[Rfam]
RNA: XIST RNA A repeat
RNA sequence: UUACCCAACGGGGUCAUGGAUACCUGCCUUUUAUUUUA
Numbered sequence: 001u002u003a004c005c006c007a008a009c010g011g012g013g014u015c016a017u018g019g020a021u022a023c024c025u026g027c028c029u030u031u032u033a034u035u036u037u038a
Stems, first nucleotide, its partner, number of pairs: 003014004017026003